[Rfam]
RNA sequence: UAUUCAGGACGACCUGAAUAAACGUUCAAAUAAUGGGGACGACCCUG
Numbered sequence: 001u002a003u004u005c006a007g008g009a010c011g012a013c014c015u016g017a018a019u020a021a022a023c024g025u026u027c028a029a030a031u032a033a034u035g036g037g038g039a040c041g042a043c044c045c046u047g
Base pairs, nucleotide, nucleotide: 001020002019003018004017005016006015007014008013034047035046036045037044038043
RNA: Guanidine-II riboswitch aptamer (mini-ykkC)